[Rfam]
RNA sequence: CCAGGGGGCUGGGCAGCCGCGUCGGGAAGCGAUUUCCGCCGAGGAAAGUCCGGGCUCCACGAAGAAAGGGUGGCGGGUAACGCCCGCCGAGAGCGAUCUCAGGGAAAGUGCCACAGAGAGCAUACCGCCGAUGGCCCAUUAAAAGGCACAGGCAAGGGUGAAAGGGUGCGGUAAGAGCGCACCGGGGGGCUGGCGACAGCCUCCGCACGGCAAACCCCACCCGGAGCAAAGCCGAAUAGGGGCGGCGCGCUCUACGGAGCAGGUGUGUUUCGCACCGACCGCCCGGGUUGGCUGCUCGAGCCAUGGAGCAAUCCAUGGCCCAGAUGAAUGGCUGCCCCUGCGGCGCAGGUCCUUCGGGAUACCGGUUGCAGGACAGAACCCGGCUUACAGGCCCCCUGGCAUC
Numbered sequence: 001c002c003a004g005g006g007g008g009c010u011g012g013g014c015a016g017c018c019g020c021g022u023c024g025g026g027a028a029g030c031g032a033u034u035u036c037c038g039c040c041g042a043g044g045a046a047a048g049u050c051c052g053g054g055c056u057c058c059a060c061g062a063a064g065a066a067a068g069g070g071u072g073g074c075g076g077g078u079a080a081c082g083c084c085c086g087c088c089g090a091g092a093g094c095g096a097u098c099u100c101a102g103g104g105a106a107a108g109u110g111c112c113a114c115a116g117a118g119a120g121c122a123u124a125c126c127g128c129c130g131a132u133g134g135c136c137c138a139u140u141a142a143a144a145g146g147c148a149c150a151g152g153c154a155a156g157g158g159u160g161a162a163a164g165g166g167u168g169c170g171g172u173a174a175g176a177g178c179g180c181a182c183c184g185g186g187g188g189g190c191u192g193g194c195g196a197c198a199g200c201c202u203c204c205g206c207a208c209g210g211c212a213a214a215c216c217c218c219a220c221c222c223g224g225a226g227c228a229a230a231g232c233c234g235a236a237u238a239g240g241g242g243c244g245g246c247g248c249g250c251u252c253u254a255c256g257g258a259g260c261a262g263g264u265g266u267g268u269u270u271c272g273c274a275c276c277g278a279c280c281g282c283c284c285g286g287g288u289u290g291g292c293u294g295c296u297c298g299a300g301c302c303a304u305g306g307a308g309c310a311a312u313c314c315a316u317g318g319c320c321c322a323g324a325u326g327a328a329u330g331g332c333u334g335c336c337c338c339u340g341c342g343g344c345g346c347a348g349g350u351c352c353u354u355c356g357g358g359a360u361a362c363c364g365g366u367u368g369c370a371g372g373a374c375a376g377a378a379c380c381c382g383g384c385u386u387a388c389a390g391g392c393c394c395c396c397u398g399g400c401a402u403c
Base pairs, nucleotide, nucleotide: 001399002398003397004396005395006394007393008392009391010390011388012336013335014334015333016332017331018330020041021040023038024037025036026035027034028033046386047385048384050383051382052381053380054379055226056225057224058223064270065269066268068222069221070220071219072218073087074086075085076084077083088102089100090099091098092097103217104216108215109214110211111210112209125157126156127153128152129151132148133147135145165183166182167181168180169179170178184206185204186203187202188201189200190199191198192197230293231292232291233290240284241283242282243281244280245279262276263275264274265273266272300319301318302317303316304315305314306313307312
Bacterial RNase P class A: a 403-nucleotide RNA sequence from Erythrobacter sp. QSSC1-22B. The match comes from Rfam's covariance-model search (310 bits). Rfam links the family to the GO terms tRNA processing, dimeric ribonuclease P complex and ribonuclease P activity.